ZMP/ZTP riboswitch aptamer (pfl RNA motif): an 84-nucleotide RNA sequence from Aquisalibacillus elongatus. Rfam links the family to the GO terms one-carbon metabolic process and regulation of purine nucleotide biosynthetic process.
[Rfam]
RNA sequence: AGCACAUACAGUGACUGACGACUUAAAUGGAAUUGACCAUGGUGGAACUGUAUGUGAAUCAUGCCGGUCGUCUGGGCGGAGAGU
Numbered sequence: 001a002g003c004a005c006a007u008a009c010a011g012u013g014a015c016u017g018a019c020g021a022c023u024u025a026a027a028u029g030g031a032a033u034u035g036a037c038c039a040u041g042g043u044g045g046a047a048c049u050g051u052a053u054g055u056g057a058a059u060c061a062u063g064c065c066g067g068u069c070g071u072c073u074g075g076g077c078g079g080a081g082a083g084u
Base pairs, nucleotide, nucleotide: 003056004055005054006053007052008051009050010049011048012047015044017072018071019070020069021068027040028039029038030037062078063077064076065075
The organism belongs to Aquisalibacillus, within Bacteria. A search with the family's covariance model found it, with a score of 61 bits. The family's consensus secondary structure is taken from published work.